Shown here is a 65-nucleotide sequence from Streptococcus pseudoporcinus, a member of the family "Bacilli-1 RNA". The family's consensus secondary structure is taken from published work.
[Rfam]
RNA sequence: AUCUGUGGUGACACAGACGCACGACUGAAGCACAUCGUGUGGCUUGGCAAAGCUUAAUAAUUGUU
Numbered sequence: 001a002u003c004u005g006u007g008g009u010g011a012c013a014c015a016g017a018c019g020c021a022c023g024a025c026u027g028a029a030g031c032a033c034a035u036c037g038u039g040u041g042g043c044u045u046g047g048c049a050a051a052g053c054u055u056a057a058u059a060a061u062u063g064u065u
Base pairs, nucleotide, nucleotide: 002017003016004015005014006013007012018041019040020039021038022037023036024035
Background:
Rfam classes the family as a small RNA. The organism belongs to Streptococcus pseudoporcinus, within Bacteria.